[Rfam]
Rfam assigns this 131-nucleotide RNA sequence from Otolemur garnettii to the family "Small nucleolar RNA SNORA11".
A search with the family's covariance model found it, with a score of 127 bits.
From the family's description: U107 (SNORA11) is a member of the H/ACA class of snoRNAs that guide the sites of modification of uridines to pseudouridines. This snoRNA was identified by RT-PCR from blood cells and its expression confirmed by Northern blot analysis. There is no predicted target for this guide snRNA.

RNA sequence: GAGGUGUGCUCAGAGCAAGGGGCCUGAAGAAUGGCUCCUCUGUUUACAACACACCCAACAGGAAUCUGGGGUCAUUGUGACGAAGGGCAGCGCAAAACUUGUGGCCUCCUGUAAACAAAUACCCUACAUUU
Numbered sequence: 001g002a003g004g005u006g007u008g009c010u011c012a013g014a015g016c017a018a019g020g021g022g023c024c025u026g027a028a029g030a031a032u033g034g035c036u037c038c039u040c041u042g043u044u045u046a047c048a049a050c051a052c053a054c055c056c057a058a059c060a061g062g063a064a065u066c067u068g069g070g071g072u073c074a075u076u077g078u079g080a081c082g083a084a085g086g087g088c089a090g091c092g093c094a095a096a097a098c099u100u101g102u103g104g105c106c107u108c109c110u111g112u113a114a115a116c117a118a119a120u121a122c123c124c125u126a127c128a129u130u131u
Stems, first nucleotide, its partner, number of pairs: 003055006013045005019039003022035003069124004076117003082112001084107003091103005